[Rfam]
RNA sequence: GUGUGAAAUGAUGAUACUUUCCCCGCAUGAUCGACUUUGAUUACACUGCUUUUCAAAUUUUCUCUGCGGAGAAAUCAAGCCAGUGGCUCUGAUCCAC
Numbered sequence: 001g002u003g004u005g006a007a008a009u010g011a012u013g014a015u016a017c018u019u020u021c022c023c024c025g026c027a028u029g030a031u032c033g034a035c036u037u038u039g040a041u042u043a044c045a046c047u048g049c050u051u052u053u054c055a056a057a058u059u060u061u062c063u064c065u066g067c068g069g070a071g072a073a074a075u076c077a078a079g080c081c082a083g084u085g086g087c088u089c090u091g092a093u094c095c096a097c
Stems, first nucleotide, its partner, number of pairs: 001097003005094002

This 97-nucleotide RNA from Apostasia shenzhenica belongs to the Rfam family "Small nucleolar RNA Z103". The organism belongs to Apostasia, within Eukaryota. Gene Ontology terms of the family: RNA processing and nucleolus. Pairs were carried over by alignment from the consensus structure, which was predicted with PFOLD.